RNA sequence: AGCUUUGCACGGUAACAGUAUUCUAGCCAGUGAGGUUUAUCCAAGGCACAAUUAUUGCUAAUUGAAAACUUUUCCCUAAAAUGUUAUAUACAGAAAUGUAGUCAAAAGUGAAAUACUGUAUUUAAACAUCUUGUUCUUCUAUACUGAUUAGU
Numbered sequence: 001a002g003c004u005u006u007g008c009a010c011g012g013u014a015a016c017a018g019u020a021u022u023c024u025a026g027c028c029a030g031u032g033a034g035g036u037u038u039a040u041c042c043a044a045g046g047c048a049c050a051a052u053u054a055u056u057g058c059u060a061a062u063u064g065a066a067a068a069c070u071u072u073u074c075c076c077u078a079a080a081a082u083g084u085u086a087u088a089u090a091c092a093g094a095a096a097u098g099u100a101g102u103c104a105a106a107a108g109u110g111a112a113a114u115a116c117u118g119u120a121u122u123u124a125a126a127c128a129u130c131u132u133g134u135u136c137u138u139c140u141a142u143a144c145u146g147a148u149u150a151g152u
Base pairs, nucleotide, nucleotide: 020052021051022050024048026047027046028045034042035041083127084126085125086123088121089120090119091118092117093116095114

Rfam assigns this 152-nucleotide sequence from Chinchilla lanigera to the family "U4 spliceosomal RNA". Its Rfam clan is "U4 clan". The match comes from Rfam's covariance-model search (64 bits). On this family, see Zwieb, Nucleic Acids Res 1997: "The uRNA database". Pairs were carried over by alignment from the consensus structure, which is taken from published work. The organism belongs to Chinchilla, within Eukaryota.